This 140-nucleotide sequence from Parabacteroides distasonis belongs to the Rfam family "Bacteroidete tryptophan peptide leader RNA".
By type it is a cis-regulatory leader.
The base pairs follow the family's consensus structure, which is taken from published work.
[Rfam]
RNA sequence: CGUAAUAACAAAACAGAGUCAUGAGAACAUUCGUAGUAAAUACAUAUUGGUGGUGGCGCUUCGUACAACUCAAAAGGUCGUAAGGAACGAAGACUCGUAUGUAUAUAUAAACACUACAUAAAGAUAUAAAGAGGUCUGUC
Number, nucleotide and partner (000 for none) at each position: 001c000002g000003u000004a000005a000006u000007a000008a000009c000010a000011a000012a000013a000014c000015a000016g000017a000018g000019u000020c000021a000022u000023g000024a000025g000026a000027a000028c000029a000030u000031u000032c000033g000034u000035a000036g108037u107038a106039a000040a104041u103042a102043c101044a100045u099046a098047u097048u000049g095050g094051u093052g000053g000054u000055g000056g000057c089058g088059c000060u086061u085062c084063g000064u000065a000066c080067a000068a078069c077070u076071c000072a000073a000074a000075a000076g070077g069078u068079c000080g066081u000082a000083a000084g062085g061086a060087a000088c058089g057090a000091a000092g000093a051094c050095u049096c000097g047098u046099a045100u044101g043102u042103a041104u040105a000106u038107a037108u036109a000110a000111a000112c000113a000114c000115u000116a000117c000118a000119u000120a000121a000122a000123g000124a000125u000126a000127u000128a000129a000130a000131g000132a000133g000134g000135u000136c000137u000138g000139u000140c000